[Rfam]
RNA: Small nucleolar RNA SNORD63
Organism: Equus caballus
RNA sequence: GUGCAGUGCCAACACAUCAUUCUGAAGAAGAGUGUGCAGUGACUUCCUGUGACUGAGCACA
Numbered sequence: 001g002u003g004c005a006g007u008g009c010c011a012a013c014a015c016a017u018c019a020u021u022c023u024g025a026a027g028a029a030g031a032g033u034g035u036g037c038a039g040u041g042a043c044u045u046c047c048u049g050u051g052a053c054u055g056a057g058c059a060c061a
Stems, first nucleotide, its partner, number of pairs: 001060004